[Rfam]
RNA sequence: CAACAAUGUUGGUAAUAUUUUUCACCAACAGCAGUUCACCUUAUGAGUGUUGAGACUUUGGGUCUGAGUGA
Numbered sequence: 001c002a003a004c005a006a007u008g009u010u011g012g013u014a015a016u017a018u019u020u021u022u023c024a025c026c027a028a029c030a031g032c033a034g035u036u037c038a039c040c041u042u043a044u045g046a047g048u049g050u051u052g053a054g055a056c057u058u059u060g061g062g063u064c065u066g067a068g069u070g071a
Stems, first nucleotide, its partner, number of pairs: 003069002008026001010024002
RNA: Small nucleolar RNA SNORD56
Organism: Carlito syrichta